RNA: MIR6024 microRNA precursor family
Organism: Solanum lycopersicum
RNA sequence: AUGGGGAAGUGGAGAAACAACACUUGCUAAAGGAAGUUCACCAGUCAUCUCUUUUCUUUUGGAGUUUUUUUAGCAAGAGUUGUUUUACCUCUUCUCAA
Numbered sequence: 001a002u003g004g005g006g007a008a009g010u011g012g013a014g015a016a017a018c019a020a021c022a023c024u025u026g027c028u029a030a031a032g033g034a035a036g037u038u039c040a041c042c043a044g045u046c047a048u049c050u051c052u053u054u055u056c057u058u059u060u061g062g063a064g065u066u067u068u069u070u071u072a073g074c075a076a077g078a079g080u081u082g083u084u085u086u087a088c089c090u091c092u093u094c095u096c097a098a
Base pairs, nucleotide, nucleotide: 002097003096004095005094007093008092009091011089012088014086015085016084017083018082019081020080021079023077024076025075026074027073028072029071030070031069032068033067034066035065037063038062039061040060
Dot-bracket structure: .((((.(((.((.((((((((.(((((((((((((.((((...................)))).))))))))))))).)))))))).)).))))))).